[Rfam]
RNA sequence: CGGUAACUCCGAAUCCGACACAGGAUAGGAGUAACGGCUGUUUGGCUCAGCCUUCGGUACGCCUGUUCGAUAAACAAACGGGGCGAGUAGCCCCACAAGAACAGGUUGUAUCGUGAACCCUAAUAUCCCAACGUGGGAAUCCCACGGCUUCAGCCGUGUGG
Numbered sequence: 001c002g003g004u005a006a007c008u009c010c011g012a013a014u015c016c017g018a019c020a021c022a023g024g025a026u027a028g029g030a031g032u033a034a035c036g037g038c039u040g041u042u043u044g045g046c047u048c049a050g051c052c053u054u055c056g057g058u059a060c061g062c063c064u065g066u067u068c069g070a071u072a073a074a075c076a077a078a079c080g081g082g083g084c085g086a087g088u089a090g091c092c093c094c095a096c097a098a099g100a101a102c103a104g105g106u107u108g109u110a111u112c113g114u115g116a117a118c119c120c121u122a123a124u125a126u127c128c129c130a131a132c133g134u135g136g137g138a139a140u141c142c143c144a145c146g147g148c149u150u151c152a153g154c155c156g157u158g159u160g161g
Base pairs, nucleotide, nucleotide: 003035004034007031008030009029010028013026014025015024036052037051038050039049040048055113056112057111058110059109060108062105063104064103065102066101067100068099080094081093082092083091084090126138127137128136129135140161141160143158144157145156146155147154148153
Dot-bracket structure: ..((..((((..(((........))).))))..))(((((.......)))))..((((((.(((((((...........(((((.....)))))....)))))))..))))))............((((.....)))).((.((((((....)))))).))

Record summary
The family of this 161-nucleotide sequence from Salinarchaeum sp. IM2453 is "Sense overlapping transcript RNA 0042 (sot)". The literature on the family includes a 2015 paper in RNA Biol by Gomes-Filho et al., "Sense overlapping transcripts in IS1341-type transposase genes are functional non-coding RNAs in archaea". From the family's description: It is associated with IS1341-type transposase (tnpB) genes, at the 3'-end in H. salinarum NRC-1. The tetraloop structural motif may be functional. A search with the family's covariance model found it, with a score of 109 bits. Pairs were carried over by alignment from the consensus structure, which was predicted with RNAfold. Rfam classes the family as a small RNA.